[Rfam]
RNA sequence: AAGAAAAAGCAGAAGCACCCGCUUCUCGCCUAGGUGAUAAGGAUUGCCGGGCUGACGAGAUGAAAUUGAACGGACAGGUAAGGUCCGUUUUGAUAAAGCGGGAUGCAGUUUGCACCCCGCUUUUUUUGCUUGAU
Numbered sequence: 001a002a003g004a005a006a007a008a009g010c011a012g013a014a015g016c017a018c019c020c021g022c023u024u025c026u027c028g029c030c031u032a033g034g035u036g037a038u039a040a041g042g043a044u045u046g047c048c049g050g051g052c053u054g055a056c057g058a059g060a061u062g063a064a065a066u067u068g069a070a071c072g073g074a075c076a077g078g079u080a081a082g083g084u085c086c087g088u089u090u091u092g093a094u095a096a097a098g099c100g101g102g103a104u105g106c107a108g109u110u111u112g113c114a115c116c117c118c119g120c121u122u123u124u125u126u127u128g129c130u131u132g133a134u
Stems, first nucleotide, its partner, number of pairs: 011026006028052003034047005097121006104114003

Shown here is a 134-nucleotide RNA sequence from Limosilactobacillus panis, a member of the family "Ribosomal protein L20 leader". A search with the family's covariance model found it, with a score of 68 bits.